[Rfam]
Overview:
A member of the RNA family "RNase MRP" from Serendipita vermifera, 433 nucleotides long. The match comes from Rfam's covariance-model search (77 bits). Rfam classes the family as a ribozyme.

RNA sequence: GACGUCGACAAAGGAUUGCCAUCGCAGUACACGAACACACCGGCGACGUCGUCUUUGACGAUGAUCGUCCGUUGACUUAUACACUGCGGGAAAAGUCCCCGGAGACACAGCGGCCGUCUCGAACUCUCUUUCCAAAUAAGGCCUCGGUGAAAAAAAGGAAAGCUCCCAUCUCUAAGCACGAUGAGGUCAUUAUUCUCUGUUGGCUGGGGGAGAGAGUUCGAUGGGCGGGCUCGUAUCGAAGGUUCUUUGCGCGUCCUUUCGACCUUCUCUGAUUGGGGGGACGAGACGUUUUAGCAUCCCUCGUCAAUACACGCUGUAGACCCUAUUCUUUUUUUAAUAAAGGGGGGUCCUACGUUUCUCAUAGCCAUAGGCAUGCAAUCGCCGUCACGCUUCGUUGUGGCGGUAUCAGAAUGGGGCUUACUCUUGCCGACGU
Numbered sequence: 001g002a003c004g005u006c007g008a009c010a011a012a013g014g015a016u017u018g019c020c021a022u023c024g025c026a027g028u029a030c031a032c033g034a035a036c037a038c039a040c041c042g043g044c045g046a047c048g049u050c051g052u053c054u055u056u057g058a059c060g061a062u063g064a065u066c067g068u069c070c071g072u073u074g075a076c077u078u079a080u081a082c083a084c085u086g087c088g089g090g091a092a093a094a095g096u097c098c099c100c101g102g103a104g105a106c107a108c109a110g111c112g113g114c115c116g117u118c119u120c121g122a123a124c125u126c127u128c129u130u131u132c133c134a135a136a137u138a139a140g141g142c143c144u145c146g147g148u149g150a151a152a153a154a155a156a157g158g159a160a161a162g163c164u165c166c167c168a169u170c171u172c173u174a175a176g177c178a179c180g181a182u183g184a185g186g187u188c189a190u191u192a193u194u195c196u197c198u199g200u201u202g203g204c205u206g207g208g209g210g211a212g213a214g215a216g217u218u219c220g221a222u223g224g225g226c227g228g229g230c231u232c233g234u235a236u237c238g239a240a241g242g243u244u245c246u247u248u249g250c251g252c253g254u255c256c257u258u259u260c261g262a263c264c265u266u267c268u269c270u271g272a273u274u275g276g277g278g279g280g281a282c283g284a285g286a287c288g289u290u291u292u293a294g295c296a297u298c299c300c301u302c303g304u305c306a307a308u309a310c311a312c313g314c315u316g317u318a319g320a321c322c323c324u325a326u327u328c329u330u331u332u333u334u335u336a337a338u339a340a341a342g343g344g345g346g347g348u349c350c351u352a353c354g355u356u357u358c359u360c361a362u363a364g365c366c367a368u369a370g371g372c373a374u375g376c377a378a379u380c381g382c383c384g385u386c387a388c389g390c391u392u393c394g395u396u397g398u399g400g401c402g403g404u405a406u407c408a409g410a411a412u413g414g415g416g417c418u419u420a421c422u423c424u425u426g427c428c429g430a431c432g433u
Stems, first nucleotide, its partner, number of pairs: 002433006009426003014380006022089007045073004093419003097416004316353003319349006328342004382403008

Background: Taxonomically the source falls in Serendipita vermifera (Eukaryota, Opisthokonta, Agaricomycetes, Sebacinales).